[Rfam]
RNA sequence: AUAGAACAAAGGCAAAUCCGAACGAAAGUCGGAGACGCAAAGCCACGGGUCUGUGUCCCAUCAGGGAUAUGAUAGCCGGGCUACUCUA
Numbered sequence: 001a002u003a004g005a006a007c008a009a010a011g012g013c014a015a016a017u018c019c020g021a022a023c024g025a026a027a028g029u030c031g032g033a034g035a036c037g038c039a040a041a042g043c044c045a046c047g048g049g050u051c052u053g054u055g056u057c058c059c060a061u062c063a064g065g066g067a068u069a070u071g072a073u074a075g076c077c078g079g080g081c082u083a084c085u086c087u088a
Stems, first nucleotide, its partner, number of pairs: 012038002017033004022029002041082004046078003049073003056067004